[Rfam]
RNA: TPP riboswitch aptamer (THI element)
RNA sequence: CCGUUCUCAACGGGGUGCUGUGCGUCGUGCGCGGCUGAGAGAGACCCGUCGAACCUGAUCCGGAUAAUCCGGCGAAGGGAUUUGAGGCUAACUCAAAA
Numbered sequence: 001c002c003g004u005u006c007u008c009a010a011c012g013g014g015g016u017g018c019u020g021u022g023c024g025u026c027g028u029g030c031g032c033g034g035c036u037g038a039g040a041g042a043g044a045c046c047c048g049u050c051g052a053a054c055c056u057g058a059u060c061c062g063g064a065u066a067a068u069c070c071g072g073c074g075a076a077g078g079g080a081u082u083u084g085a086g087g088c089u090a091a092c093u094c095a096a097a098a
Stems, first nucleotide, its partner, number of pairs: 006086005011048004016042001017035007054078003060072004